[Rfam]
RNA sequence: CUAUAUAUACCCUGUAGAACCGAAUUUGUGUUAAACAAAUUGAAAUCGCAAGUUCGUCUCUAGGGGAAUUUAUGGU
Numbered sequence: 001c002u003a004u005a006u007a008u009a010c011c012c013u014g015u016a017g018a019a020c021c022g023a024a025u026u027u028g029u030g031u032u033a034a035a036c037a038a039a040u041u042g043a044a045a046u047c048g049c050a051a052g053u054u055c056g057u058c059u060c061u062a063g064g065g066g067a068a069u070u071u072a073u074g075g076u
Stems, first nucleotide, its partner, number of pairs: 002074004007069001010066003016061003021056010
A member of the RNA family "mir-10 microRNA precursor family" from Polypterus senegalus, 76 nucleotides long. Taxonomically the source falls in Polypterus (Eukaryota, Bilateria, Chordata, Actinopterygii). Rfam 15.1 lists 3,853 matches to the family in 853 species. On this family, see Lee and Ambros, Science 2001: "An extensive class of small RNAs in Caenorhabditis elegans". Rfam links the family to the GO terms miRNA-mediated post-transcriptional gene silencing and RISC complex. The base pairs follow the family's consensus structure, which was predicted with PFOLD.